[Rfam]
RNA sequence: AUCUUAUCGAGAGAGGUCUAGGGACUGGCCCGAUGACACCUCAGCAACCAGCAAUGCAAUUGUAUGGUGCUAAAUCCAGACGGUAUAUUACCAAAGAUAAGAG
Numbered sequence: 001a002u003c004u005u006a007u008c009g010a011g012a013g014a015g016g017u018c019u020a021g022g023g024a025c026u027g028g029c030c031c032g033a034u035g036a037c038a039c040c041u042c043a044g045c046a047a048c049c050a051g052c053a054a055u056g057c058a059a060u061u062g063u064a065u066g067g068u069g070c071u072a073a074a075u076c077c078a079g080a081c082g083g084u085a086u087a088u089u090a091c092c093a094a095a096g097a098u099a100a101g102a103g
Stems, first nucleotide, its partner, number of pairs: 002102007013042005021031003025079004043071004048067002051063003075095001082092004